[Rfam]
RNA: Small nucleolar RNA snoR27
Organism: Dioscorea zingiberensis
RNA sequence: UCUGGGUCAGUGAUGAUGUUAUAUCAAACUGCGUUAUCUUUCUGUAUAUCCUUUAUAGGACUUGAAGAAGAUGACUGUGUUCACUGAGGCCUAUU
Numbered sequence: 001u002c003u004g005g006g007u008c009a010g011u012g013a014u015g016a017u018g019u020u021a022u023a024u025c026a027a028a029c030u031g032c033g034u035u036a037u038c039u040u041u042c043u044g045u046a047u048a049u050c051c052u053u054u055a056u057a058g059g060a061c062u063u064g065a066a067g068a069a070g071a072u073g074a075c076u077g078u079g080u081u082c083a084c085u086g087a088g089g090c091c092u093a094u095u
Base pairs, nucleotide, nucleotide: 003093004092005091006090007089